The family of this 98-nucleotide RNA sequence from Flavonifractor sp. An135 is "Purine riboswitch aptamer". A search with the family's covariance model found it, with a score of 47 bits. Rfam's curators write: Riboswitches are metabolite binding domains within certain messenger RNAs that serve as precision sensors for their corresponding targets.
RNA sequence: AAUAAAGACAGAAUGAAGACUCAUAUAGGCCCAUAAUCGGUUGGGCGUUUCUACCGGCUGCCGUAAACAGCCGCCCUAUCAGUCUCCCGUUCCGGAAU
Numbered sequence: 001a002a003u004a005a006a007g008a009c010a011g012a013a014u015g016a017a018g019a020c021u022c023a024u025a026u027a028g029g030c031c032c033a034u035a036a037u038c039g040g041u042u043g044g045g046c047g048u049u050u051c052u053a054c055c056g057g058c059u060g061c062c063g064u065a066a067a068c069a070g071c072c073g074c075c076c077u078a079u080c081a082g083u084c085u086c087c088c089g090u091u092c093c094g095g096a097a098u
Stems, first nucleotide, its partner, number of pairs: 018084004023079003029046005055073006